[Rfam]
RNA sequence: GCACUGGUCGGAAACCAGUGCGCGUUCUUAUGAAGGAG
Numbered sequence: 001g002c003a004c005u006g007g008u009c010g011g012a013a014a015c016c017a018g019u020g021c022g023c024g025u026u027c028u029u030a031u032g033a034a035g036g037a038g
Stems, first nucleotide, its partner, number of pairs: 001021008

Source information
Rfam assigns this 38-nucleotide RNA sequence to the family "L31-Coriobacteria ribosomal protein leader". The family is grouped with related families in Rfam's "Ribosomal Protein L31 Leader clan". The literature on the family includes a 2020 paper in BMC Microbiol by Eckert and Weinberg, "Discovery of 20 novel ribosomal leader candidates in bacteria and archaea". It is annotated as a cis-regulatory leader.